[Rfam]
RNA sequence: AAAGAUGAAAAUUGUUUUUUUUGUUUCUUUUUUUAUUUUAGCACCCAAAAUUUGGGGCUUUCGCGCAUUUAAGAAAAGAAACGAAAAACCGCGAUAAGCCUCCACUCUAAAUGGAGGCUUUUUUUGU
Numbered sequence: 001a002a003a004g005a006u007g008a009a010a011a012u013u014g015u016u017u018u019u020u021u022u023g024u025u026u027c028u029u030u031u032u033u034u035a036u037u038u039u040a041g042c043a044c045c046c047a048a049a050a051u052u053u054g055g056g057g058c059u060u061u062c063g064c065g066c067a068u069u070u071a072a073g074a075a076a077a078g079a080a081a082c083g084a085a086a087a088a089c090c091g092c093g094a095u096a097a098g099c100c101u102c103c104a105c106u107c108u109a110a111a112u113g114g115a116g117g118c119u120u121u122u123u124u125u126g127u
Stems, first nucleotide, its partner, number of pairs: 013091002018087014033072003039054002055066001057064002096120009